[Rfam]
RNA sequence: GACCCGACGCCGCCGAAUCGUUCACGCAGCACGAGCCGGGGACCCACGUACCACUGGGGUGAAUCCGCAUCGCGGUAGGGCGCCACUCUUUCCCGCCCGAACCCGUCAGCUAACCCGGUAGGCGGACUGGAAAGAAGGA
Numbered sequence: 001g002a003c004c005c006g007a008c009g010c011c012g013c014c015g016a017a018u019c020g021u022u023c024a025c026g027c028a029g030c031a032c033g034a035g036c037c038g039g040g041g042a043c044c045c046a047c048g049u050a051c052c053a054c055u056g057g058g059g060u061g062a063a064u065c066c067g068c069a070u071c072g073c074g075g076u077a078g079g080g081c082g083c084c085a086c087u088c089u090u091u092c093c094c095g096c097c098c099g100a101a102c103c104c105g106u107c108a109g110c111u112a113a114c115c116c117g118g119u120a121g122g123c124g125g126a127c128u129g130g131a132a133a134g135a136a137g138g139a
Stems, first nucleotide, its partner, number of pairs: 011124004018034003035119006045056002057104003065075004078098004
The record is a 139-nucleotide RNA sequence from Micromonospora pattaloongensis, which matches "c-di-AMP riboswitch aptamer (ydaO/yuaA leader)" in Rfam. A search with the family's covariance model found it, with a score of 92 bits.